[Rfam]
Rfam assigns this 307-nucleotide sequence from Kryptolebias marmoratus to the family "7SK RNA". On this family, see Blencowe, Curr Biol 2002: "Transcription: surprising role for an elusive small nuclear RNA". The base pairs follow the family's consensus structure, which is taken from published work. The family is grouped with related families in Rfam's "7SK clan". The source organism's lineage runs through Eukaryota, Opisthokonta, Neopterygii, Rivulidae and Kryptolebias. The match comes from Rfam's covariance-model search (290 bits).
RNA sequence: GGAUGUGAGGGCGAUCUGGCUGCGACAUCUGUCACCCCAUUGAUCGCUAGGGUUGAUUCGGCUGAUCUGGCUGGCUAGGCGGGUGUCCCCUUCCUCCCUCACUGCUCCAUAUGUGUCCCUCCCGAAGCCCUGCGCUCGGUGGCAGCGGACGACGUAGGACGACCAUCCUUCGGUGUACCAGUAGCUGCGCUCCCCUGCUAGAACCUCCAAACAAGCUCAAGGCCAAAAGGAGAAACGUAGGGAAGUCAAGCUCCAAGCUUCAGACACAUCCAAAUGCGGCGCUGCACGUGGCAGUCUGCCUUACCUU
Numbered sequence: 001g002g003a004u005g006u007g008a009g010g011g012c013g014a015u016c017u018g019g020c021u022g023c024g025a026c027a028u029c030u031g032u033c034a035c036c037c038c039a040u041u042g043a044u045c046g047c048u049a050g051g052g053u054u055g056a057u058u059c060g061g062c063u064g065a066u067c068u069g070g071c072u073g074g075c076u077a078g079g080c081g082g083g084u085g086u087c088c089c090c091u092u093c094c095u096c097c098c099u100c101a102c103u104g105c106u107c108c109a110u111a112u113g114u115g116u117c118c119c120u121c122c123c124g125a126a127g128c129c130c131u132g133c134g135c136u137c138g139g140u141g142g143c144a145g146c147g148g149a150c151g152a153c154g155u156a157g158g159a160c161g162a163c164c165a166u167c168c169u170u171c172g173g174u175g176u177a178c179c180a181g182u183a184g185c186u187g188c189g190c191u192c193c194c195c196u197g198c199u200a201g202a203a204c205c206u207c208c209a210a211a212c213a214a215g216c217u218c219a220a221g222g223c224c225a226a227a228a229g230g231a232g233a234a235a236c237g238u239a240g241g242g243a244a245g246u247c248a249a250g251c252u253c254c255a256a257g258c259u260u261c262a263g264a265c266a267c268a269u270c271c272a273a274a275u276g277c278g279g280c281g282c283u284g285c286a287c288g289u290g291g292c293a294g295u296c297u298g299c300c301u302u303a304c305c306u307u
Stems, first nucleotide, its partner, number of pairs: 001108003005102007013093002018090002024087010035074002037070003042067004046062003116161001118158003122139004127135002140152001142150001184251003190245002193242006205232004272307002276302001278300003281295005